[Rfam]
RNA: Acido-Lenti-1 RNA
RNA sequence: CCUGGGACUCGCGUCCCAGGCUUGCGCAUGCCAUGGCUUCGCCACU
Dot-bracket structure: ((((((((....)))))))).............((((...))))..
Numbered sequence: 001c002c003u004g005g006g007a008c009u010c011g012c013g014u015c016c017c018a019g020g021c022u023u024g025c026g027c028a029u030g031c032c033a034u035g036g037c038u039u040c041g042c043c044a045c046u
Stems, first nucleotide, its partner, number of pairs: 001020008034044004